About this RNA: Repression of heat shock gene expression (ROSE) element: an 89-nucleotide sequence from Endobacterium cereale. Rfam 15.1 lists 381 matches to the family in 262 species.
RNA sequence: CCGACGGCCCAAUAAGGGGGUCGGUUGACCGAGGGAGCGGAUAAACCGCUUCCUUCCAUGUUGCUUUAUGGAGGAUAUGGUUAUGAGAA
Numbered sequence: 001c002c003g004a005c006g007g008c009c010c011a012a013u014a015a016g017g018g019g020g021u022c023g024g025u026u027g028a029c030c031g032a033g034g035g036a037g038c039g040g041a042u043a044a045a046c047c048g049c050u051u052c053c054u055u056c057c058a059u060g061u062u063g064c065u066u067u068a069u070g071g072a073g074g075a076u077a078u079g080g081u082u083a084u085g086a087g088a089a
Stems, first nucleotide, its partner, number of pairs: 001024005008018002031055010056080007064073003

Description
This family represents a 5' UTR cis-regulatory element found in heat shock mRNAs and is known as the ROSE (repression of heat shock gene expression) element. The ROSE element is a negative regulator of heat shock gene expression. The secondary structure is thought to be regulated by temperature. This regulation blocks access to the ribosome binding site under normal conditions.